Nucleotides: 030
Stems, first nucleotide, its partner, number of pairs: 009019004
Number, partner (000 for none) and nucleotide at each position: 001000a002000u003000u004000u005000a006000a007000a008000u009019a010018c011017a012016u013000c014000u015000u016012a017011u018010g019009u020000u021000a022000a023000u024000a025000u026000u027000c028000a029000a030000u
A member of the RNA family "CRISPR RNA direct repeat element" from Clostridium thermopalmarium, 30 nucleotides long. The match comes from Rfam's covariance-model search (46 bits). The organism belongs to Clostridium thermopalmarium, within Bacteria.